[Rfam]
Nucleotides: 090
Stems, first nucleotide, its partner, number of pairs: 004087002008084002011081003015077001017075002020072005026067007034060006
Number, partner (000 for none) and nucleotide at each position: 001000a002000g003000g004087u005086c006000c007000u008084u009083a010000g011081c012080a013079g014000g015077g016000u017075g018074g019000a020072a021071g022070a023069c024068u025000a026067g027066u028065g029064a030063u031062u032061u033000u034060g035059u036058u037057g038056u039055u040000c041000c042000u043000c044000u045000u046000a047000c048000a049000u050000g051000a052000g053000u054000a055039a056038a057037c058036a059035a060034c061032a062031a063030g064029u065028c066027a067026u068024a069023g070022u071021c072020u073000g074018c075017c076000u077015c078000a079013c080012u081011g082000c083009u084008g085000u086005g087004a088000g089000a090000c

Shown here is a 90-nucleotide sequence from Denticeps clupeoides, a member of the family "mir-7 microRNA precursor family". Rfam describes the family as follows. This family represents the microRNA (miRNA) precursor mir-7. The family has 132 seed sequences and 2,589 matches in Rfam 15.1. Gene Ontology terms of the family: miRNA-mediated post-transcriptional gene silencing and RISC complex. For this family Rfam cites "Identification of novel genes coding for small expressed RNAs" (Lagos-Quintana et al., Science, 2001). The match comes from Rfam's covariance-model search (66 bits).